[Rfam]
RNA: c-di-AMP riboswitch aptamer (ydaO/yuaA leader)
Organism: Paenibacillus sp. YN15
RNA sequence: UAUAAAAAUACGCUUAGUUUUCGGCAGCGGCCGGAAAGCGGGGGAACCACGCAAUUGGGGCGAAUCAUCUUGAGAUGUAGGGUACCAUCUACCCGAGCCCGUCAGCUAACCUCGUCAGCAGGAGAUGGGUCAUUU
Numbered sequence: 001u002a003u004a005a006a007a008a009u010a011c012g013c014u015u016a017g018u019u020u021u022c023g024g025c026a027g028c029g030g031c032c033g034g035a036a037a038g039c040g041g042g043g044g045a046a047c048c049a050c051g052c053a054a055u056u057g058g059g060g061c062g063a064a065u066c067a068u069c070u071u072g073a074g075a076u077g078u079a080g081g082g083u084a085c086c087a088u089c090u091a092c093c094c095g096a097g098c099c100c101g102u103c104a105g106c107u108a109a110c111c112u113c114g115u116c117a118g119c120a121g122g123a124g125a126u127g128g129g130u131c132a133u134u135u
Stems, first nucleotide, its partner, number of pairs: 012119003018037008038115006048057002058100003066077004080094004
Dot-bracket structure: ...........(((...((((((((....))))))))((((((....((......))(((.....((((....))))..((((.......))))...))).........)))))).)))................